Rfam assigns this 104-nucleotide RNA sequence from Trinickia terrae to the family "SAM-I/IV (S-adenosyl methionine) riboswitch aptamer". The organism belongs to Trinickia, within Bacteria. A search with the family's covariance model found it, with a score of 60 bits. A reference for the family is Trausch et al. (2014), "Structural basis for diversity in the SAM clan of riboswitches", PNAS.
[Rfam]
RNA sequence: CCCUUGCAUCAAGAGUCGGAUGAUUCCGACGCCAACCUGCCUUCCCGGGCAAGGUGGACGCCUCAGGGCGAUGCGGCCGAUUGACGGCAACGAAGCGGGAGCGG
Numbered sequence: 001c002c003c004u005u006g007c008a009u010c011a012a013g014a015g016u017c018g019g020a021u022g023a024u025u026c027c028g029a030c031g032c033c034a035a036c037c038u039g040c041c042u043u044c045c046c047g048g049g050c051a052a053g054g055u056g057g058a059c060g061c062c063u064c065a066g067g068g069c070g071a072u073g074c075g076g077c078c079g080a081u082u083g084a085c086g087g088c089a090a091c092g093a094a095g096c097g098g099g100a101g102c103g104g
Base pairs, nucleotide, nucleotide: 006074007073008072009071010070015030016029017028018027019026020025032057033056036054037053038052039050040049041048043100044099045098046097047096076088077087078086079085